[Rfam]
RNA sequence: CUCUUAUCGAGAGAGGUGGAGGGAAAUGGCCCUAUGAAACCCGGCAACCAGUGUGUUAUUUUCACAUUAAGGUGCCAAUUCCCGCAGAUAGAUUUCUGCAAGAUAAGAG
Numbered sequence: 001c002u003c004u005u006a007u008c009g010a011g012a013g014a015g016g017u018g019g020a021g022g023g024a025a026a027u028g029g030c031c032c033u034a035u036g037a038a039a040c041c042c043g044g045c046a047a048c049c050a051g052u053g054u055g056u057u058a059u060u061u062u063c064a065c066a067u068u069a070a071g072g073u074g075c076c077a078a079u080u081c082c083c084g085c086a087g088a089u090a091g092a093u094u095u096c097u098g099c100a101a102g103a104u105a106a107g108a109g
Stems, first nucleotide, its partner, number of pairs: 001109008013042001015041003021032003028082002043076004048072002050068006080101001085098004
The family of this 109-nucleotide RNA from Clostridium pasteurianum is "SAM riboswitch aptamer (S box leader)". The match comes from Rfam's covariance-model search (91 bits).